[Rfam]
RNA sequence: AUAAUUCCUCGUUAGGUGAGGCUCCUGUAUGGAGACACGCUACUGCCCAAAAACGUCCAAAGACGCCAAUGGGUCAACAGAAAUCAUCGACAUAAGGUGAUAUCUAACGUAGCUGGACGUUGUCCUAUGCCAUACAGUGCUAAAGCUCUACGAAUGGAGGCAGAAG
Number, nucleotide and partner (000 for none) at each position: 001a000002u000003a000004a000005u162006u000007c160008c159009u158010c157011g151012u150013u095014a000015g147016g146017u145018g000019a000020g141021g140022c139023u000024c000025c137026u136027g135028u134029a133030u132031g131032g130033a000034g000035a000036c000037a000038c000039g113040c112041u111042a110043c109044u000045g074046c073047c072048c071049a070050a000051a000052a000053a000054c065055g064056u063057c062058c000059a000060a000061a000062g057063a056064c055065g054066c000067c000068a000069a000070u049071g048072g047073g046074u045075c000076a000077a000078c000079a000080g104081a103082a000083a101084u000085c000086a098087u097088c096089g000090a000091c000092a000093u000094a000095a013096g088097g087098u086099g000100a000101u083102a000103u081104c080105u000106a000107a000108c000109g043110u042111a041112g040113c039114u000115g125116g124117a123118c000119g000120u000121u000122g000123u117124c116125c115126u000127a000128u000129g000130c032131c031132a030133u029134a028135c027136a026137g025138u000139g022140c021141u020142a000143a000144a000145g017146c016147u015148c000149u000150a012151c011152g000153a000154a000155u000156g000157g010158a009159g008160g007161c000162a005163g000164a000165a000166g000

Rfam assigns this 166-nucleotide RNA sequence from Salipaludibacillus keqinensis to the family "M-box riboswitch aptamer (ykoK leader)". A search with the family's covariance model found it, with a score of 147 bits. Its family is annotated with regulation of gene expression and response to magnesium ion in the Gene Ontology. Taxonomically the source falls in Salipaludibacillus (Bacteria, Bacillati, Bacillota, Caryophanales). M-box riboswitch, also know as ykoK leader is described as a metaloregulatory RNA that sense divalent metals and function as a genetic control element of genes related to divalent metal transport in bacteria. It was first reported upstream of the B.subtilis ykoK gene and genes with related functions in other bacteria.